[Rfam]
RNA sequence: AAGAUCCGUUCGCAAAAAUCGUCUGGCAGAGGCGGGGGAACCAUUUUUUGGCCUUUGAAAGAAGGCCUUGGGGUUAAGUCGCAAAGCUUCCAAGGAAGCCGCGCGGCCGGGUGACUCCCAUCCGAAUCCGACAGCUCACCUCGCAGGCAUUGGGAGAGGCUAC
Dot-bracket structure: ....((......................)).((((((....((.........................))(((.....((((....................))))..((((.......))))...))).........))))))...................
The family of this 163-nucleotide sequence from Arthrobacter cavernae is "c-di-AMP riboswitch aptamer (ydaO/yuaA leader)". This family represents a conserved RNA structure found upstream of the ydaO and yuaA genes in Bacillus subtilis and related genes in other bacteria. Pairs were carried over by alignment from the consensus structure.